RNA sequence: GAGGGUCUGGCGAGGAAACCGUUACCAUUACUGAGUUUAGUAAUGGUAACGGUUCUCUGGCUGGGCCCACC
Numbered sequence: 001g002a003g004g005g006u007c008u009g010g011c012g013a014g015g016a017a018a019c020c021g022u023u024a025c026c027a028u029u030a031c032u033g034a035g036u037u038u039a040g041u042a043a044u045g046g047u048a049a050c051g052g053u054u055c056u057c058u059g060g061c062u063g064g065g066c067c068c069a070c071c
Stems, first nucleotide, its partner, number of pairs: 007064003011060001013058001017054004022049012

The record is a 71-nucleotide RNA sequence from Ornithorhynchus anatinus, which matches "mir-451 microRNA precursor family" in Rfam. Its family is annotated with miRNA-mediated post-transcriptional gene silencing and RISC complex in the Gene Ontology. The base pairs follow the family's consensus structure, which was predicted with RNAalifold. A reference for the family is Zhu et al. (2008), "Role of MicroRNA miR-27a and miR-451 in the regulation of MDR1/P-glycoprotein expression in human cancer cells", Biochem Pharmacol. Rfam's curators put it in the seed alignment. The family has 22 seed sequences and 658 matches in Rfam 15.1.